A member of the RNA family "Saccharopolyspora sRNA 350" from Nonomuraea polychroma, 512 nucleotides long. The base pairs follow the family's consensus structure, which was predicted with RNAfold. Taxonomically the source falls in Nonomuraea (Bacteria, Bacillati, Actinomycetota, Streptosporangiales). Rfam links the family to the GO term regulation of secondary metabolite biosynthetic process. A search with the family's covariance model found it, with a score of 54 bits.
[Rfam]
RNA sequence: CUGACCGUGCACGGCCAGCGCGGGUCCUCCCUGCCGAUGGCCUCGUCGCCGAACUGGUCGCCGUCGGCGAGGACGCCGCGGGCCUGGGUGGCGCCGUACGGGCCGGUGGCGAGCCGCUCCAGGCGCCCGUGCGCGAUGACGUAGGUGUCGGUGACGGGGGUGCCGGCCUCGACGAUGACCUCCCCCGCCUCGACCUCCCGGCGCGUGUACGUCGCGGCGACGGCGGUCAGCACGUGCACGUCAGGGAAGCCGCGCAGCAGGGGAAUCUCCGCGAGCGUCUCCGGGAUGAUGCGCACGUCGUCCGCCCCGUACUGCGCCACGCUCACCCGGCCCCGCCCGACCCGGUGCGUCAGCCUGCGGUUGACACGGUAGGUCCCGCCGCGCACGUCCACCCAGGGCAACAUGCGCAGCAACCACCGGGAGGUGAUGGCCUGCAUCUGGGGACGGGUCUUGGUGGUGGUGGCAAGGUUGCGUGCGGCCCGGGUGUCCAGGCUCGACCGCGCAUCCGUGGG
Numbered sequence: 001c002u003g004a005c006c007g008u009g010c011a012c013g014g015c016c017a018g019c020g021c022g023g024g025u026c027c028u029c030c031c032u033g034c035c036g037a038u039g040g041c042c043u044c045g046u047c048g049c050c051g052a053a054c055u056g057g058u059c060g061c062c063g064u065c066g067g068c069g070a071g072g073a074c075g076c077c078g079c080g081g082g083c084c085u086g087g088g089u090g091g092c093g094c095c096g097u098a099c100g101g102g103c104c105g106g107u108g109g110c111g112a113g114c115c116g117c118u119c120c121a122g123g124c125g126c127c128c129g130u131g132c133g134c135g136a137u138g139a140c141g142u143a144g145g146u147g148u149c150g151g152u153g154a155c156g157g158g159g160g161u162g163c164c165g166g167c168c169u170c171g172a173c174g175a176u177g178a179c180c181u182c183c184c185c186c187g188c189c190u191c192g193a194c195c196u197c198c199c200g201g202c203g204c205g206u207g208u209a210c211g212u213c214g215c216g217g218c219g220a221c222g223g224c225g226g227u228c229a230g231c232a233c234g235u236g237c238a239c240g241u242c243a244g245g246g247a248a249g250c251c252g253c254g255c256a257g258c259a260g261g262g263g264a265a266u267c268u269c270c271g272c273g274a275g276c277g278u279c280u281c282c283g284g285g286a287u288g289a290u291g292c293g294c295a296c297g298u299c300g301u302c303c304g305c306c307c308c309g310u311a312c313u314g315c316g317c318c319a320c321g322c323u324c325a326c327c328c329g330g331c332c333c334c335g336c337c338c339g340a341c342c343c344g345g346u347g348c349g350u351c352a353g354c355c356u357g358c359g360g361u362u363g364a365c366a367c368g369g370u371a372g373g374u375c376c377c378g379c380c381g382c383g384c385a386c387g388u389c390c391a392c393c394c395a396g397g398g399c400a401a402c403a404u405g406c407g408c409a410g411c412a413a414c415c416a417c418c419g420g421g422a423g424g425u426g427a428u429g430g431c432c433u434g435c436a437u438c439u440g441g442g443g444a445c446g447g448g449u450c451u452u453g454g455u456g457g458u459g460g461u462g463g464c465a466a467g468g469u470u471g472c473g474u475g476c477g478g479c480c481c482g483g484g485u486g487u488c489c490a491g492g493c494u495c496g497a498c499c500g501c502g503c504a505u506c507c508g509u510g511g512g
Base pairs, nucleotide, nucleotide: 007392008391009390011388012387016383018331019330022327025325026321028319035316036315039312042309045308048305049304051302052301054230055229057227058226059225060224061223062222063221064220065111066110068108075103077102079100080099082097083096086095087094117219119217120216126211129208130207131204132203133202134201143196144195149192150191153189155187156186157185158184159183161177166173232298233297234296237293239291240290241289242288250283252281254279256278257276258275261270262269332345333344335342355381357379358378359377360376363375364374365373394434395433396432397431399429400428402426403425404424406421408419410418440479442476444474445473446472448470449468450467451466452465454464455463480511481510483506484505485504487502489500491498